[Rfam]
Overview:
Shown here is a 378-nucleotide RNA from Methyloprofundus sedimenti, a member of the family "transfer-messenger RNA". The organism belongs to Methyloprofundus, within Bacteria.
RNA sequence: GGGGACGACCAGGUUUCGACGUGGGUAGCAAAACCUUAGGGGCAUGUCGAGGACAGUACACCUCGUAAAAUCUACUGAACUUAAAGUAUUCGCAAAUGACGAAAACUACUCAAUGGCUUUAGCUGCUUAAACACAGCACCAUUCUCCUGACUAUCUGUGCUUAUGCGGGUAGGUUCUUCGGAACACUCAGGAGUCACUCUACAUAAGAUCGCGUUAAGAACUUUGUUCGGAGUUCAAACACGCUAAAUCCAAUCGAAAUCGCUAAAAGUAUCUUGGUCCGACGGGUAGCUUCUAGCUAAAUCAAAAGCGCGGAAUAAACAUGUAGAUCCAAAGGCGGAGUGCUUGCGGACGGGGGUUCGAUUCCCCCCGUCUCCACCA
Dot-bracket structure: (((((((............((((((((......((((.(((.((((((((((.[[[[[..))))).......]]]]]........................................(...((((........))))...)..((((((.((((((((.[[[[[))))))))...............)))))).........]]]]]..[[.[[[..........((((.......]]].]]...........))))...((((.((((.(((...[[.[..)))..)))).))))...........]..]].....)))))....))).)))).....))))))))...(((((.......))))))))))))....
Description:
Bacterial tmRNA, also known as 10Sa RNA or SsrA, is named for its dual tRNA and mRNA-like properties. Its role is to liberate the mRNA from a stalled ribosome. To accomplish this part of the tmRNA is used as a reading frame that ends in a translation stop signal. The literature on the family includes a 2002 paper in Nucleic Acids Res by Williams, "The tmRNA Website: invasion by an intron".